The family of this 71-nucleotide RNA sequence is "tRNA". Rfam classes the family as a transfer RNA.
RNA sequence: AAGAAAAUGGCAGAGUGGUGAUGCAACUGACUUGAAAUCAGAGUAUGGGGGUUCGAUUCCCUCUUUUCUCG
Numbered sequence: 001a002a003g004a005a006a007a008u009g010g011c012a013g014a015g016u017g018g019u020g021a022u023g024c025a026a027c028u029g030a031c032u033u034g035a036a037a038u039c040a041g042a043g044u045a046u047g048g049g050g051g052u053u054c055g056a057u058u059c060c061c062u063c064u065u066u067u068c069u070c071g
Stems, first nucleotide, its partner, number of pairs: 002069006010024003027041004047063005
Dot-bracket structure: .((((((..(((.........)))..((((.......)))).....(((((.......)))))))))))..

From the family's description: Transfer RNA (tRNA) molecules are approximately 80 nucleotides in length. Pairs were carried over by alignment from the consensus structure, which is taken from published work.